[Rfam]
RNA sequence: UGCUUAUUUUGCCCAAGCGGAGCUCGACCGACCGUUCCGCAAAUGACCGCGUUCAUCGAAGAGUACCGUGAAGCCUUUGGGGUCGAGCCGAUCUGCCGCGUUUUGCCGAUCGCCUCA
Numbered sequence: 001u002g003c004u005u006a007u008u009u010u011g012c013c014c015a016a017g018c019g020g021a022g023c024u025c026g027a028c029c030g031a032c033c034g035u036u037c038c039g040c041a042a043a044u045g046a047c048c049g050c051g052u053u054c055a056u057c058g059a060a061g062a063g064u065a066c067c068g069u070g071a072a073g074c075c076u077u078u079g080g081g082g083u084c085g086a087g088c089c090g091a092u093c094u095g096c097c098g099c100g101u102u103u104u105g106c107c108g109a110u111c112g113c114c115u116c117a
Base pairs, nucleotide, nucleotide: 018030019029020028078117079116080115081114082113089112090111092109093108095106096105098103